RNA sequence: CAUAACUGAAAUCUCAAAUGACGGGGUAGCGUUAUGAAGGGGAUCACUAAUACUCCGAAUAGCGUCAGCCGAAUACAGACGGUUGGGGUUAUAAGCUCGGUGAAGUCGUGCGAAGCACACCCUAACGCUUAAUGGCGAGGAAAGAUUCGUAGAGGUACGGGUUGUGUGUGACAGUGCGGGUGGGGUUGCC
Numbered sequence: 001c002a003u004a005a006c007u008g009a010a011a012u013c014u015c016a017a018a019u020g021a022c023g024g025g026g027u028a029g030c031g032u033u034a035u036g037a038a039g040g041g042g043a044u045c046a047c048u049a050a051u052a053c054u055c056c057g058a059a060u061a062g063c064g065u066c067a068g069c070c071g072a073a074u075a076c077a078g079a080c081g082g083u084u085g086g087g088g089u090u091a092u093a094a095g096c097u098c099g100g101u102g103a104a105g106u107c108g109u110g111c112g113a114a115g116c117a118c119a120c121c122c123u124a125a126c127g128c129u130u131a132a133u134g135g136c137g138a139g140g141a142a143a144g145a146u147u148c149g150u151a152g153a154g155g156u157a158c159g160g161g162u163u164g165u166g167u168g169u170g171a172c173a174g175u176g177c178g179g180g181u182g183g184g185g186u187u188g189c190c
Stems, first nucleotide, its partner, number of pairs: 011044005023035001025033002045182004055100004059092005065086007107178005115169006121140003127136002144163008
Dot-bracket structure: ..........(((((.......(.((.....)).)....)))))((((......(((((((((.(((((((........))))))).)))))....))))......(((((...(((((((((...((......)).)))...((((((((....))))))))))))))....)))))))))........

The record is a 190-nucleotide sequence, which matches "Group II catalytic intron D1-D4-5" in Rfam. Gene Ontology term of the family: Group II intron splicing. About the family: Group II introns are found in rRNA, tRNA and mRNA of organelles in fungi, plants and protists, and also in mRNA in bacteria.